[Rfam]
RNA: DUF805b RNA
Organism: Pedobacter agri
RNA sequence: AAAGGAGUAGCCGAAAACCUCAAACAGAGUAGGCA
Number, nucleotide and partner (000 for none) at each position: 001a000002a000003a020004g019005g018006a000007g000008u000009a000010g034011c033012c032013g000014a000015a000016a000017a000018c005019c004020u003021c000022a000023a000024a000025c000026a000027g000028a000029g000030u000031a000032g012033g011034c010035a000